[Rfam]
RNA sequence: GGGCACCUGCGGACUUCGGUCGAGGGGCCUUACAACAUGAGGCAGGGCAACCUGCCGCAAAGCAACGGAAGACAGAAA
Numbered sequence: 001g002g003g004c005a006c007c008u009g010c011g012g013a014c015u016u017c018g019g020u021c022g023a024g025g026g027g028c029c030u031u032a033c034a035a036c037a038u039g040a041g042g043c044a045g046g047g048c049a050a051c052c053u054g055c056c057g058c059a060a061a062g063c064a065a066c067g068g069a070a071g072a073c074a075g076a077a078a
Stems, first nucleotide, its partner, number of pairs: 001030004006026003041056006